Annotation:
A member of the RNA family "Plastid-psbM 3UTR RNA" from Rhamnella rubrinervis, 79 nucleotides long. The family's consensus secondary structure was predicted with LocARNA. NCBI's taxonomy places the organism under Eukaryota, Viridiplantae, Spermatophyta, Gunneridae, Rhamnella. Plastid psbM is a non-coding RNA (ncRNA) recognised in plastids. It was found in the three prime untranslated region (3UTR) of psbM gene, its 3UTR location suggests a role in transcript maturation.
[Rfam]
RNA sequence: GAGAUGAUAGUAUGGUAGAAAGAGAAAUAUGAAUCUUUUUACCAUACUAUCUAAUAUUGUACUGUAUAAAGUUUACUGU
Numbered sequence: 001g002a003g004a005u006g007a008u009a010g011u012a013u014g015g016u017a018g019a020a021a022g023a024g025a026a027a028u029a030u031g032a033a034u035c036u037u038u039u040u041a042c043c044a045u046a047c048u049a050u051c052u053a054a055u056a057u058u059g060u061a062c063u064g065u066a067u068a069a070a071g072u073u074u075a076c077u078g079u
Stems, first nucleotide, its partner, number of pairs: 006051018
It scores 65 bits against the family's covariance model. Rfam classes the family as a cis-regulatory element.